The family of this 65-nucleotide sequence is "mir-29 microRNA precursor family". Pairs were carried over by alignment from the consensus structure, which was predicted with PFOLD. On this family, see Ambros, Cell 2001: "microRNAs: tiny regulators with great potential". This family represents the microRNA (miRNA) precursors mir-29. Its family is annotated with gene silencing by miRNA and RISC complex in the Gene Ontology. The sequence is in the family's curated seed alignment.
RNA sequence: UGACUGAUUUCUUUUGGUGUUCAGAGUCAAUAAUAAUUUCUAGCACCAUUUGAAAUCGGUUAUAG
Numbered sequence: 001u002g003a004c005u006g007a008u009u010u011c012u013u014u015u016g017g018u019g020u021u022c023a024g025a026g027u028c029a030a031u032a033a034u035a036a037u038u039u040c041u042a043g044c045a046c047c048a049u050u051u052g053a054a055a056u057c058g059g060u061u062a063u064a065g
Stems, first nucleotide, its partner, number of pairs: 001062001002060001004059008015048005023041003